The family of this 83-nucleotide sequence from Caenorhabditis elegans is "mir-266 microRNA precursor family". A search with the family's covariance model found it, with a score of 81 bits. Gene Ontology terms of the family: miRNA-mediated post-transcriptional gene silencing and RISC complex. The source organism's lineage runs through Eukaryota, Opisthokonta, Metazoa, Rhabditoidea and Caenorhabditis.
RNA sequence: GGGCAAAAGUUGGGCAAGACUUUGGCAAACCUUGGAUUCAGGAUGCACCAAAGUUAAACACAAGUUUCACCCAACUCUUGCCA
Numbered sequence: 001g002g003g004c005a006a007a008a009g010u011u012g013g014g015c016a017a018g019a020c021u022u023u024g025g026c027a028a029a030c031c032u033u034g035g036a037u038u039c040a041g042g043a044u045g046c047a048c049c050a051a052a053g054u055u056a057a058a059c060a061c062a063a064g065u066u067u068c069a070c071c072c073a074a075c076u077c078u079u080g081c082c083a
Stems, first nucleotide, its partner, number of pairs: 002082005008076007017067005025059001029055001031053003